[Rfam]
RNA sequence: GGCGUAAAGGGUGCGCGGGUGGCUUGCCAAGACCCCUGUAAAAUCCUACGGCCCAACCGUAGUGCUGCGGAGGUGACUGGUAUGCUUGAGUAUGGCAGAGGGGGGUAGAAUUCCAGGUGUAGCGGUGAAAUGCGUAGAUAUCUGGAGGAAUACCGAAGGCGAAGGCAACCCCCUGGGCCAUCACUGACACUGAGGCACGAAAGCGUGGGGAGCAAACAGGAUUAGAUACCCUGGUAGUCCACGCCCUAAACCAUGUCGACUAGUCGUCGGGGGAAGCCCUUUUUCCUAGGUGACGAAGCUAACGCAUGAAGUCGACCGCCUGAGUAGUACGACCGCAAGGUUAAAACUCAAAGGAAU
Numbered sequence: 001g002g003c004g005u006a007a008a009g010g011g012u013g014c015g016c017g018g019g020u021g022g023c024u025u026g027c028c029a030a031g032a033c034c035c036c037u038g039u040a041a042a043a044u045c046c047u048a049c050g051g052c053c054c055a056a057c058c059g060u061a062g063u064g065c066u067g068c069g070g071a072g073g074u075g076a077c078u079g080g081u082a083u084g085c086u087u088g089a090g091u092a093u094g095g096c097a098g099a100g101g102g103g104g105g106u107a108g109a110a111u112u113c114c115a116g117g118u119g120u121a122g123c124g125g126u127g128a129a130a131u132g133c134g135u136a137g138a139u140a141u142c143u144g145g146a147g148g149a150a151u152a153c154c155g156a157a158g159g160c161g162a163a164g165g166c167a168a169c170c171c172c173c174u175g176g177g178c179c180a181u182c183a184c185u186g187a188c189a190c191u192g193a194g195g196c197a198c199g200a201a202a203g204c205g206u207g208g209g210g211a212g213c214a215a216a217c218a219g220g221a222u223u224a225g226a227u228a229c230c231c232u233g234g235u236a237g238u239c240c241a242c243g244c245c246c247u248a249a250a251c252c253a254u255g256u257c258g259a260c261u262a263g264u265c266g267u268c269g270g271g272g273g274a275a276g277c278c279c280u281u282u283u284u285c286c287u288a289g290g291u292g293a294c295g296a297a298g299c300u301a302a303c304g305c306a307u308g309a310a311g312u313c314g315a316c317c318g319c320c321u322g323a324g325u326a327g328u329a330c331g332a333c334c335g336c337a338a339g340g341u342u343a344a345a346a347c348u349c350a351a352a353g354g355a356a357u
Stems, first nucleotide, its partner, number of pairs: 001320003009317001011198004016192001018191003022085002025082004030078002032074003036070005046062006089185003092181005100174007107151001111147008122133003159166002203244006212238002217233004255316006263294006270287005298305002322349003331342004
Background
This 357-nucleotide part of an RNA from Candidatus Tremblayella princeps belongs to the Rfam family "Bacterial small subunit ribosomal RNA". On this family, see Cannone et al., BMC Bioinformatics 2002: "The comparative RNA web (CRW) site: an online database of comparative sequence and structure information for ribosomal, intron, and other RNAs". The source organism's lineage runs through Bacteria, Pseudomonadati, Pseudomonadota, Betaproteobacteria and Candidatus Tremblayella. The sequence is in the family's curated seed alignment. The family is grouped with related families in Rfam's "SSU clan".